[Rfam]
RNA sequence: GGUAGUAGCAAAUAUUCAAACGAGAGCUUUGAAGGCCGAAGUGGAGAAGGGUUCCAUGUGAACAGCAGUUGAACAUGGGUCAGUCGGUCCUAAGGGAUGGGCAAACGCCGUUCUGAAGGGUGGGGCGACUCUGGACGUGCGCCGGGCCCUUCUCGCGGAUCUCCCCGGCUAUGGUCCGCGCCGGGACCUCGGCCGGCGCCUAGCAGCCGGCUUAGAACUGGUGCGGACAAGGGGAAUCCGACUGUUUAAUUAAAACAAAGCAUCGCGAAGGCUCUCGGCGGGUGUUGACGCGAUGUGAUUUCUGCCCAGUGCUCUGAAUGUCAAAGUGAAGAAAUUCAAUGAAGCGCGGGUAAACGGCGGGAGUAACUAUGACUCUCUUAAGGUAGCCAAAUGCCUCGUCAUCUAAUUAGUGACGCGCAUGAAUGGAUGAACGAGAUUCCCACUGUCCCUACCUACUAUCUAGCGAAACCACAGCCAAGGGAACGGGCUUGGCAGA
Numbered sequence: 001g002g003u004a005g006u007a008g009c010a011a012a013u014a015u016u017c018a019a020a021c022g023a024g025a026g027c028u029u030u031g032a033a034g035g036c037c038g039a040a041g042u043g044g045a046g047a048a049g050g051g052u053u054c055c056a057u058g059u060g061a062a063c064a065g066c067a068g069u070u071g072a073a074c075a076u077g078g079g080u081c082a083g084u085c086g087g088u089c090c091u092a093a094g095g096g097a098u099g100g101g102c103a104a105a106c107g108c109c110g111u112u113c114u115g116a117a118g119g120g121u122g123g124g125g126c127g128a129c130u131c132u133g134g135a136c137g138u139g140c141g142c143c144g145g146g147c148c149c150u151u152c153u154c155g156c157g158g159a160u161c162u163c164c165c166c167g168g169c170u171a172u173g174g175u176c177c178g179c180g181c182c183g184g185g186a187c188c189u190c191g192g193c194c195g196g197c198g199c200c201u202a203g204c205a206g207c208c209g210g211c212u213u214a215g216a217a218c219u220g221g222u223g224c225g226g227a228c229a230a231g232g233g234g235a236a237u238c239c240g241a242c243u244g245u246u247u248a249a250u251u252a253a254a255a256c257a258a259a260g261c262a263u264c265g266c267g268a269a270g271g272c273u274c275u276c277g278g279c280g281g282g283u284g285u286u287g288a289c290g291c292g293a294u295g296u297g298a299u300u301u302c303u304g305c306c307c308a309g310u311g312c313u314c315u316g317a318a319u320g321u322c323a324a325a326g327u328g329a330a331g332a333a334a335u336u337c338a339a340u341g342a343a344g345c346g347c348g349g350g351u352a353a354a355c356g357g358c359g360g361g362a363g364u365a366a367c368u369a370u371g372a373c374u375c376u377c378u379u380a381a382g383g384u385a386g387c388c389a390a391a392u393g394c395c396u397c398g399u400c401a402u403c404u405a406a407u408u409a410g411u412g413a414c415g416c417g418c419a420u421g422a423a424u425g426g427a428u429g430a431a432c433g434a435g436a437u438u439c440c441c442a443c444u445g446u447c448c449c450u451a452c453c454u455a456c457u458a459u460c461u462a463g464c465g466a467a468a469c470c471a472c473a474g475c476c477a478a479g480g481g482a483a484c485g486g487g488c489u490u491g492g493c494a495g496a
Base pairs, nucleotide, nucleotide: 015033016032017031018030019029020028034170035169036168037167043164044163045162046161049148050147054078055077056076057075058074059073063071064070085144086143087142089120090119094114095113096112097111098110100109101108102107153159154158172462173461174460178452180450183448184447185446195208196207197206198204199203209219210218212216220224232441233440234439235438236437237436238435239433240432243257244256245255260296261295262294263293264292265291266290267289269285271283272282273281274280300427301426302425304358305357306356309355310354311351312350313349314348316347319346320345321344327338328337329336330335359377360376361375362374363373364372378382398414399413400412401411402410475492476491477490478489479488